[Rfam]
RNA sequence: UCUAGAACUUAAGAUAUAGGCUGAAUACUGAAUAGUGUCCGGGUUGCAGGACAAAUUCGGACUUCUCCGUUGUUGCUACAAUUUGGACUUGAAAACGGUCUUUUUAAAUCUUGGACUCCUCAUGAAAGUUUUAGGUCUAUGUAUUAGAUUUCCAUC
Numbered sequence: 001u002c003u004a005g006a007a008c009u010u011a012a013g014a015u016a017u018a019g020g021c022u023g024a025a026u027a028c029u030g031a032a033u034a035g036u037g038u039c040c041g042g043g044u045u046g047c048a049g050g051a052c053a054a055a056u057u058c059g060g061a062c063u064u065c066u067c068c069g070u071u072g073u074u075g076c077u078a079c080a081a082u083u084u085g086g087a088c089u090u091g092a093a094a095a096c097g098g099u100c101u102u103u104u105u106a107a108a109u110c111u112u113g114g115a116c117u118c119c120u121c122a123u124g125a126a127a128g129u130u131u132u133a134g135g136u137c138u139a140u141g142u143a144u145u146a147g148a149u150u151u152c153c154a155u156c
Stems, first nucleotide, its partner, number of pairs: 003154001005152003008147002011145002014142007021134005027129003035123003041119003045115001048112004054105002059100002062098002072088003